Background:
Guanidine-I riboswitch aptamer: a 97-nucleotide RNA from Geosporobacter ferrireducens.

RNA sequence: UAUAUAGUUUUCUAGGGUUCCGCAGUGUUUAGCUGGACAGGUCCAAGAGAAAACGCACAUUUCAUUGUGUACACGGAAGGAUAAAAGCCUGGGAGAG
Numbered sequence: 001u002a003u004a005u006a007g008u009u010u011u012c013u014a015g016g017g018u019u020c021c022g023c024a025g026u027g028u029u030u031a032g033c034u035g036g037a038c039a040g041g042u043c044c045a046a047g048a049g050a051a052a053a054c055g056c057a058c059a060u061u062u063c064a065u066u067g068u069g070u071a072c073a074c075g076g077a078a079g080g081a082u083a084a085a086a087g088c089c090u091g092g093g094a095g096a097g
Stems, first nucleotide, its partner, number of pairs: 007054006015044002020041002022038001023035004055070005072092001074095001078090003

A reference for the family is Barrick et al. (2004), "New RNA motifs suggest an expanded scope for riboswitches in bacterial genetic control", Proc Natl Acad Sci U S A.
Rfam's curators write: This family represents a conserved RNA structure found upstream of the ykkC and yxkD genes in Bacillus subtilis and related genes in other bacteria.